[Rfam]
RNA sequence: UGGCGAUGAAGCAAUAGACUGGUUCGGCAUCAGCCUGUUGUAGAGCCAAACCGUGGGUUCAGCGAUAACCACAAGCCGAAUAGAUUCGAUGAAUCGAAAGAAAACGCUUAAU
Numbered sequence: 001u002g003g004c005g006a007u008g009a010a011g012c013a014a015u016a017g018a019c020u021g022g023u024u025c026g027g028c029a030u031c032a033g034c035c036u037g038u039u040g041u042a043g044a045g046c047c048a049a050a051c052c053g054u055g056g057g058u059u060c061a062g063c064g065a066u067a068a069c070c071a072c073a074a075g076c077c078g079a080a081u082a083g084a085u086u087c088g089a090u091g092a093a094u095c096g097a098a099a100g101a102a103a104a105c106g107c108u109u110a111a112u
Stems, first nucleotide, its partner, number of pairs: 001048004011041007019033003024079004062107003083095004
RNA: drum RNA